The record is a 100-nucleotide sequence, which matches "L4-Archaeoglobi ribosomal protein leades" in Rfam.
RNA sequence: CUGACGGGCGCGUCCGGGUCAAUUGCGGACUGCAACACCCGAUCUCCCUGCCGGUACCGCCGUCGAUGGCGGUCUCGGCCGGGGAACGCGUCACCAUCAG
Numbered sequence: 001c002u003g004a005c006g007g008g009c010g011c012g013u014c015c016g017g018g019u020c021a022a023u024u025g026c027g028g029a030c031u032g033c034a035a036c037a038c039c040c041g042a043u044c045u046c047c048c049u050g051c052c053g054g055u056a057c058c059g060c061c062g063u064c065g066a067u068g069g070c071g072g073u074c075u076c077g078g079c080c081g082g083g084g085a086a087c088g089c090g091u092c093a094c095c096a097u098c099a100g
Base pairs, nucleotide, nucleotide: 001100002099003098004097008091009090010089011088012087013086015041016040017039018038023035024034025033026032027031045085046084047083048082049081051078052077053076054075056073057072058071059070060069061068

The sequence is in the family's curated seed alignment.